[Rfam]
RNA sequence: GAGCUAUGAAGAAGAUUUUAAAGGAAUCUGAUGUUGCACUGAAGACAUAAGAUCCAACUCUGAGCUCGCUGCUCC
Numbered sequence: 001g002a003g004c005u006a007u008g009a010a011g012a013a014g015a016u017u018u019u020a021a022a023g024g025a026a027u028c029u030g031a032u033g034u035u036g037c038a039c040u041g042a043a044g045a046c047a048u049a050a051g052a053u054c055c056a057a058c059u060c061u062g063a064g065c066u067c068g069c070u071g072c073u074c075c
Stems, first nucleotide, its partner, number of pairs: 001067004
Annotation:
This 75-nucleotide RNA from Semnornis frantzii belongs to the Rfam family "Small nucleolar RNA SNORD19". Its Rfam clan is "SNORD19 clan". The literature on the family includes a 2001 paper in EMBO J by Huttenhofer et al., "RNomics: an experimental approach that identifies 201 candidates for novel, small, non-messenger RNAs in mouse". The match comes from Rfam's covariance-model search (52 bits). Taxonomically the source falls in Semnornis (Eukaryota, Chordata, Vertebrata, Theropoda).